[Rfam]
RNA sequence: CAAUUAUGGACCUUGGCACUGGGAGAAUUCACAGUGGAUCGUACCAUAUCGUUUCUGUGGAUCUUUUCGUGCCAUCGUUCAGAUUUG
Dot-bracket structure: ..(.(.((((...(((((..(((.((..((((((....................)))))).))).))..)))))...)))).).)..
Numbered sequence: 001c002a003a004u005u006a007u008g009g010a011c012c013u014u015g016g017c018a019c020u021g022g023g024a025g026a027a028u029u030c031a032c033a034g035u036g037g038a039u040c041g042u043a044c045c046a047u048a049u050c051g052u053u054u055c056u057g058u059g060g061a062u063c064u065u066u067u068c069g070u071g072c073c074a075u076c077g078u079u080c081a082g083a084u085u086u087g
Stems, first nucleotide, its partner, number of pairs: 003085001005083001007081004014074005021067002023064001025063002029060006